[Rfam]
RNA sequence: CGACGCGCUCCUUGAGCGGCGGCCCGAGUAACUCACAGGAGUGAACGUCAUCGAUCACCCGAACGGAGGCUGAACUGGCGACCUAGGCUCGCGCCACAACAUCAAAUCGACGGCCCCCGGCGGGAUGCCGGUCCCGACCGAGGGCCUGACCAGCAAGGAAGGAAAGGCUUCCUC
Numbered sequence: 001c002g003a004c005g006c007g008c009u010c011c012u013u014g015a016g017c018g019g020c021g022g023c024c025c026g027a028g029u030a031a032c033u034c035a036c037a038g039g040a041g042u043g044a045a046c047g048u049c050a051u052c053g054a055u056c057a058c059c060c061g062a063a064c065g066g067a068g069g070c071u072g073a074a075c076u077g078g079c080g081a082c083c084u085a086g087g088c089u090c091g092c093g094c095c096a097c098a099a100c101a102u103c104a105a106a107u108c109g110a111c112g113g114c115c116c117c118c119g120g121c122g123g124g125a126u127g128c129c130g131g132u133c134c135c136g137a138c139c140g141a142g143g144g145c146c147u148g149a150c151c152a153g154c155a156a157g158g159a160a161g162g163a164a165a166g167g168c169u170u171c172c173u174c
Stems, first nucleotide, its partner, number of pairs: 029044001031042004058093001060091003112146005118140003122135004157172005
Shown here is a 174-nucleotide RNA sequence from Streptomyces regalis, a member of the family "Streptomyces sRNA 4677". Located in the intergenic region between anti-sigma factor SCO4677 gene and a putative regulatory protein gene SCO4676. scr4677 expression requires the SCO4677 activity and scr4677 sRNA itself seem to affect the levels of the SCO4676-associated transcripts. The base pairs follow the family's consensus structure. On this family, see Hindra et al., PLoS One 2014: "Complex intra-operonic dynamics mediated by a small RNA in Streptomyces coelicolor".